[Rfam]
The record is a 396-nucleotide part of an RNA from Salix koriyanagi, which matches "Eukaryotic large subunit ribosomal RNA" in Rfam. A search with the family's covariance model found it, with a score of 2668 bits. The organism belongs to Salix, within Eukaryota.
RNA sequence: GACGAGUGUCGCAAUAGUAAUCCAACCUAGUACGAGAGGAACCGUUGAUUCGCACAAUUGGUCAUCGCGCUUGGUUGAAAAGCCGGUGGCGCGAAGCUACCGUGCGUUGGAUUAUGGCUGAAUGCCUCUAAGUCAGAAUCCGGGCUAGAUGCGGCGCGUGCGCCCGCCGUCCGAUUGCCGACCUGCAGUAGGGGCCUCUUGGCCCCGGAGGCACGUGCCGUAGGCCAAGCCCUCGCGGUGGAAGAGCCGCGCAGGCCGCCUUGAAGUACAAUUCCCCCCGAGCGGCGGGUAGAAUCCUUUGCAGACGACUUAAAUACGCGACGGGGUAUUGUAAGUGGCAGAGUGGCCUUGCUGCCACGAUCCACUGAGAUUCAGCCCCAUGUCGCUCCGAUUCGU
Numbered sequence: 001g002a003c004g005a006g007u008g009u010c011g012c013a014a015u016a017g018u019a020a021u022c023c024a025a026c027c028u029a030g031u032a033c034g035a036g037a038g039g040a041a042c043c044g045u046u047g048a049u050u051c052g053c054a055c056a057a058u059u060g061g062u063c064a065u066c067g068c069g070c071u072u073g074g075u076u077g078a079a080a081a082g083c084c085g086g087u088g089g090c091g092c093g094a095a096g097c098u099a100c101c102g103u104g105c106g107u108u109g110g111a112u113u114a115u116g117g118c119u120g121a122a123u124g125c126c127u128c129u130a131a132g133u134c135a136g137a138a139u140c141c142g143g144g145c146u147a148g149a150u151g152c153g154g155c156g157c158g159u160g161c162g163c164c165c166g167c168c169g170u171c172c173g174a175u176u177g178c179c180g181a182c183c184u185g186c187a188g189u190a191g192g193g194g195c196c197u198c199u200u201g202g203c204c205c206c207g208g209a210g211g212c213a214c215g216u217g218c219c220g221u222a223g224g225c226c227a228a229g230c231c232c233u234c235g236c237g238g239u240g241g242a243a244g245a246g247c248c249g250c251g252c253a254g255g256c257c258g259c260c261u262u263g264a265a266g267u268a269c270a271a272u273u274c275c276c277c278c279c280g281a282g283c284g285g286c287g288g289g290u291a292g293a294a295u296c297c298u299u300u301g302c303a304g305a306c307g308a309c310u311u312a313a314a315u316a317c318g319c320g321a322c323g324g325g326g327u328a329u330u331g332u333a334a335g336u337g338g339c340a341g342a343g344u345g346g347c348c349u350u351g352c353u354g355c356c357a358c359g360a361u362c363c364a365c366u367g368a369g370a371u372u373c374a375g376c377c378c379c380a381u382g383u384c385g386c387u388c389c390g391a392u393u394c395g396u
Base pairs, nucleotide, nucleotide: 006157007156008155009154010153011152012151015147016146017145018144020050023047024046025045026044051106052105053104054103055102059099060098061097066093067092068091069090070089071086072085073084074083075082076081108142109141110140115135116134117133118132119131164288165287166286167285168284169283170282292394293393294392295391296390298312301309318386319385320384321383322382323381324378325377326376328371329370335365336364337363338362340361343358344357345356346355347354